[Rfam]
Rfam assigns this 69-nucleotide RNA sequence to the family "GP20-b RNA". Rfam classes the family as a cis-regulatory element. The base pairs follow the family's consensus structure, which is taken from published work. Rfam's curators put it in the seed alignment.
RNA sequence: UGCCCUGAAUAUGGCGUAAAACUAUUCAAGCAUUUUAACAUAAGAGGUGAAACCUCGUAAAAAAUCGUA
Numbered sequence: 001u002g003c004c005c006u007g008a009a010u011a012u013g014g015c016g017u018a019a020a021a022c023u024a025u026u027c028a029a030g031c032a033u034u035u036u037a038a039c040a041u042a043a044g045a046g047g048u049g050a051a052a053c054c055u056c057g058u059a060a061a062a063a064a065u066c067g068u069a
Stems, first nucleotide, its partner, number of pairs: 001016004007027005044056003